Shown here is a 509-nucleotide RNA from Coniochaeta pulveracea, a member of the family "RNase MRP". The base pairs follow the family's consensus structure, which is taken from published work. By type it is a ribozyme. Rfam links the family to the GO terms rRNA processing, ribonuclease MRP activity and ribonuclease MRP complex.
RNA sequence: CUCUCGUCCAACAGAUCGCUAUCGAAGCUCACAAACGAAAAGGACCUUCGGGUUCCUUUUUUCUGCAUAAGCUUUGGGAGAAAGUCCCCGGACACCCUCUUAUGAGGACUGCGGAAACGCGCCGCCAUAAAAGCACACGCGGUUGAUCUCUGCCGGUCAGUCUCUCGUUUGUUGUCCAGUUCCACCCUGCUCGUCGAUUUACUCUGGCUUUCGACGACUCGUCAAUCGCUUCGCCCUCUUUGCUACUGGGUUCCGGCCUGCCGGAGACCACAUGGAUGAAGAUAUGAGUCCGCGCUCUGGUUGGUCUGGAAUCCGGGACGCGAUCUGGGUUGGGAGAUGGGUCUGUUGGAGUCGGUGGCGGGUGGCCGUGGACUGGUCUGAACCUGGGAUGUUACGAGCCUGGCUUGAGAAUUAUUUGUCGAGAUAUCACAGGAAUGCGAUUGCUUGCGGUUCUCUAUGGUAACAUGGGGAGCUCAAGUUACUCGAUGGGGCUUAUUCUUGGUGCGAGG
Numbered sequence: 001c002u003c004u005c006g007u008c009c010a011a012c013a014g015a016u017c018g019c020u021a022u023c024g025a026a027g028c029u030c031a032c033a034a035a036c037g038a039a040a041a042g043g044a045c046c047u048u049c050g051g052g053u054u055c056c057u058u059u060u061u062u063c064u065g066c067a068u069a070a071g072c073u074u075u076g077g078g079a080g081a082a083a084g085u086c087c088c089c090g091g092a093c094a095c096c097c098u099c100u101u102a103u104g105a106g107g108a109c110u111g112c113g114g115a116a117a118c119g120c121g122c123c124g125c126c127a128u129a130a131a132a133g134c135a136c137a138c139g140c141g142g143u144u145g146a147u148c149u150c151u152g153c154c155g156g157u158c159a160g161u162c163u164c165u166c167g168u169u170u171g172u173u174g175u176c177c178a179g180u181u182c183c184a185c186c187c188u189g190c191u192c193g194u195c196g197a198u199u200u201a202c203u204c205u206g207g208c209u210u211u212c213g214a215c216g217a218c219u220c221g222u223c224a225a226u227c228g229c230u231u232c233g234c235c236c237u238c239u240u241u242g243c244u245a246c247u248g249g250g251u252u253c254c255g256g257c258c259u260g261c262c263g264g265a266g267a268c269c270a271c272a273u274g275g276a277u278g279a280a281g282a283u284a285u286g287a288g289u290c291c292g293c294g295c296u297c298u299g300g301u302u303g304g305u306c307u308g309g310a311a312u313c314c315g316g317g318a319c320g321c322g323a324u325c326u327g328g329g330u331u332g333g334g335a336g337a338u339g340g341g342u343c344u345g346u347u348g349g350a351g352u353c354g355g356u357g358g359c360g361g362g363u364g365g366c367c368g369u370g371g372a373c374u375g376g377u378c379u380g381a382a383c384c385u386g387g388g389a390u391g392u393u394a395c396g397a398g399c400c401u402g403g404c405u406u407g408a409g410a411a412u413u414a415u416u417u418g419u420c421g422a423g424a425u426a427u428c429a430c431a432g433g434a435a436u437g438c439g440a441u442u443g444c445u446u447g448c449g450g451u452u453c454u455c456u457a458u459g460g461u462a463a464c465a466u467g468g469g470g471a472g473c474u475c476a477a478g479u480u481a482c483u484c485g486a487u488g489g490g491g492c493u494u495a496u497u498c499u500u501g502g503u504g505c506g507a508g509g
Stems, first nucleotide, its partner, number of pairs: 002509006008502004014442006022078001023076006038060007082494003086491004110121004308400002314396002317393003327385004371378002444478004449473001